[Rfam]
RNA: Small nucleolar RNA U2-30
RNA sequence: GAGUAAUGAUAAGAAAAGGUUUUACUACUGUCCUUUGUAAUUAUAAAGGUUUUUAUACUUGACCUGAGCUCA
Numbered sequence: 001g002a003g004u005a006a007u008g009a010u011a012a013g014a015a016a017a018g019g020u021u022u023u024a025c026u027a028c029u030g031u032c033c034u035u036u037g038u039a040a041u042u043a044u045a046a047a048g049g050u051u052u053u054u055a056u057a058c059u060u061g062a063c064c065u066g067a068g069c070u071c072a
Stems, first nucleotide, its partner, number of pairs: 001071004015036005021030001